[Rfam]
Nucleotides: 074
Base pairs, nucleotide, nucleotide: 001073002072003071004070005069006068007067010026011025012024013023028044029043030042031041032040050066051065052064053063054062
Number, partner (000 for none) and nucleotide at each position: 001073c002072g003071g004070g005069a006068u007067g008000u009000a010026g011025c012024g013023c014000a015000g016000c017000u018000u019000g020000g021000u022000a023013g024012c025011g026010c027000g028044c029043u030042u031041c032040g033000u034000u035000c036000g037000g038000g039000a040032c041031g042030a043029a044028g045000a046000g047000g048000u049000c050066g051065c052064a053063g054062g055000u056000u057000c058000g059000a060000a061000u062054c063053c064052u065051g066050u067007c068006a069005u070004c071003c072002c073001g074000a
The record is a 74-nucleotide RNA from Gloeobacterales cyanobacterium ES-bin-141, which matches "tRNA" in Rfam. About the family: Transfer RNA (tRNA) molecules are approximately 80 nucleotides in length. Rfam classes the family as a transfer RNA.